[Rfam]
This 120-nucleotide RNA sequence from Gillisia sp. Hel1_33_143 belongs to the Rfam family "6S-Flavo RNA". The family's RNA type in Rfam is small RNA.

RNA sequence: ACUCAACAAAGAUUCUUUAAAAAGGGUGAGUUUUAGUUGUAAAAGCGCGCCGUCAUCCAAUUUAUUGGUAGAACGGAUUCUUGAUCAGCUUGUUAGCCCUAUACUUGUUUUAAGGAGUUU
Numbered sequence: 001a002c003u004c005a006a007c008a009a010a011g012a013u014u015c016u017u018u019a020a021a022a023a024g025g026g027u028g029a030g031u032u033u034u035a036g037u038u039g040u041a042a043a044a045g046c047g048c049g050c051c052g053u054c055a056u057c058c059a060a061u062u063u064a065u066u067g068g069u070a071g072a073a074c075g076g077a078u079u080c081u082u083g084a085u086c087a088g089c090u091u092g093u094u095a096g097c098c099c100u101a102u103a104c105u106u107g108u109u110u111u112a113a114g115g116a117g118u119u120u
Stems, first nucleotide, its partner, number of pairs: 023100005035090004043082003050076004
A search with the family's covariance model found it, with a score of 91 bits. Pairs were carried over by alignment from the consensus structure, which is taken from published work.